[Rfam]
RNA sequence: AUUGCAAAUUUGAAGCCAUAGCAGAAAUGCUCAUGGCAUGGCCCUGUCAUAUUCCAACAAAUCUGAAGAUUCUGUU
Numbered sequence: 001a002u003u004g005c006a007a008a009u010u011u012g013a014a015g016c017c018a019u020a021g022c023a024g025a026a027a028u029g030c031u032c033a034u035g036g037c038a039u040g041g042c043c044c045u046g047u048c049a050u051a052u053u054c055c056a057a058c059a060a061a062u063c064u065g066a067a068g069a070u071u072c073u074g075u076u
Base pairs, nucleotide, nucleotide: 012044015042016041017040020076021075022074023073024072025071026070027039028038029037048065049064051062052061053060
This 76-nucleotide sequence from Alligator mississippiensis belongs to the Rfam family "Mammalian CPEB3 ribozyme". The family's consensus secondary structure is taken from published work. A search with the family's covariance model found it, with a score of 36 bits. Rfam links the family to the GO term RNA nuclease activity. The mammalian CPEB3 ribozyme is a self cleaving RNA located in the second intron of the CPEB3 gene which belongs to a family of genes regulating messenger RNA polyadenylation.